[Rfam]
RNA sequence: GUGUCAUUUUUGUGAUGUUGCAGCUAGUAAUAUGAGCCCAGUUGCAUAGUCACAAAAGUGAUCAUUG
Numbered sequence: 001g002u003g004u005c006a007u008u009u010u011u012g013u014g015a016u017g018u019u020g021c022a023g024c025u026a027g028u029a030a031u032a033u034g035a036g037c038c039c040a041g042u043u044g045c046a047u048a049g050u051c052a053c054a055a056a057a058g059u060g061a062u063c064a065u066u067g
Stems, first nucleotide, its partner, number of pairs: 001065003004061013019046007